Rfam assigns this 300-nucleotide RNA sequence from Lupinus angustifolius to the family "Metazoan signal recognition particle RNA". The base pairs follow the family's consensus structure, which is taken from published work. Rfam describes the family as follows. The signal recognition particle (SRP) is a universally conserved ribonucleoprotein. The match comes from Rfam's covariance-model search (229 bits). The family is grouped with related families in Rfam's "SRP clan".

RNA sequence: GCCGGGAGUCGUGGCGCACUCCUGUAAUCCAGCUACCUUGGAGGCCGGGAGAUGAGGAUGGUUUGAGGCUGGGGCUUCCGCUGCGCGGUGGGUCAUGGUGACUGGGCGUCCGCACGAAGCUGGCCGUCGGCAUGGAGACCUUGGAGGAGUCCGAGGAGCCCAGGUUGGCUAAGGAGGGGCGGACCGGGCCAGGGGGGUUGACCCAGCAGCCAAAAGUCCCCGCGGUGAGCAGUCGUGGGAUCGCGCCCGGGAGUGGCAGCCGCGUAUCGGCCCGGCCAAAACAGUCAGACCAUCUCCUUU
Numbered sequence: 001g002c003c004g005g006g007a008g009u010c011g012u013g014g015c016g017c018a019c020u021c022c023u024g025u026a027a028u029c030c031a032g033c034u035a036c037c038u039u040g041g042a043g044g045c046c047g048g049g050a051g052a053u054g055a056g057g058a059u060g061g062u063u064u065g066a067g068g069c070u071g072g073g074g075c076u077u078c079c080g081c082u083g084c085g086c087g088g089u090g091g092g093u094c095a096u097g098g099u100g101a102c103u104g105g106g107c108g109u110c111c112g113c114a115c116g117a118a119g120c121u122g123g124c125c126g127u128c129g130g131c132a133u134g135g136a137g138a139c140c141u142u143g144g145a146g147g148a149g150u151c152c153g154a155g156g157a158g159c160c161c162a163g164g165u166u167g168g169c170u171a172a173g174g175a176g177g178g179g180c181g182g183a184c185c186g187g188g189c190c191a192g193g194g195g196g197g198u199u200g201a202c203c204c205a206g207c208a209g210c211c212a213a214a215a216g217u218c219c220c221c222g223c224g225g226u227g228a229g230c231a232g233u234c235g236u237g238g239g240a241u242c243g244c245g246c247c248c249g250g251g252a253g254u255g256g257c258a259g260c261c262g263c264g265u266a267u268c269g270g271c272c273c274g275g276c277c278a279a280a281a282c283a284g285u286c287a288g289a290c291c292a293u294c295u296c297c298u299u300u
Stems, first nucleotide, its partner, number of pairs: 001045003004023006028042003047298008059287005067277007078270003082266008092257005102250008110239002113237005119230003123226005128167004133162003139156007169173001176220005187211003194204003
Dot-bracket structure: (((((((((........))))))....(((.........)))))).((((((((....(((((...(((((((....(((.((((((((..(((((.....((((((((((.(((((.(((.(((((((((.(((...(((((((....)))))))...))).)))).(...)..(((((......(((....(((.....)))....)))....))))).))))).)))..)))))))...))))))))..))))).)))))))).)))))))))).....)))))...))))))))..